[Rfam]
RNA sequence: GGAGCGGACCGGGCCCCUCUGGCGCGGCGCUCUGGGUGACAAUGGCAUUGCCAUGGUACCAGGCGCUUCGUGAUGUCGGACCGCAUCG
Number, nucleotide and partner (000 for none) at each position: 001g000002g000003a000004g000005c000006g082007g081008a000009c079010c078011g077012g076013g000014c000015c000016c000017c000018u000019c000020u000021g000022g071023c070024g069025c000026g067027g066028c065029g064030c063031u062032c000033u000034g000035g000036g000037u000038g000039a000040c000041a000042a000043u000044g000045g000046c000047a000048u000049u000050g000051c000052c000053a000054u000055g000056g000057u000058a000059c000060c000061a000062g031063g030064c029065g028066c027067u026068u000069c024070g023071u022072g000073a000074u000075g000076u012077c011078g010079g009080a000081c007082c006083g000084c000085a000086u000087c000088g000